RNA: 6S-Flavo RNA
Organism: Myroides indicus
RNA sequence: ACUCAACACUAACAAAUUAAAAUGGGUGAAUCUUUGCAACUAAAGCACGCUGCCUUCGGCAGAUCCUUGAACGGCAAGCUAGCUCAAAACUUGUCUUUUUUCGAGUUU
Numbered sequence: 001a002c003u004c005a006a007c008a009c010u011a012a013c014a015a016a017u018u019a020a021a022a023u024g025g026g027u028g029a030a031u032c033u034u035u036g037c038a039a040c041u042a043a044a045g046c047a048c049g050c051u052g053c054c055u056u057c058g059g060c061a062g063a064u065c066c067u068u069g070a071a072c073g074g075c076a077a078g079c080u081a082g083c084u085c086a087a088a089a090c091u092u093g094u095c096u097u098u099u100u101u102c103g104a105g106u107u108u
Stems, first nucleotide, its partner, number of pairs: 023086005034077004043068003050062004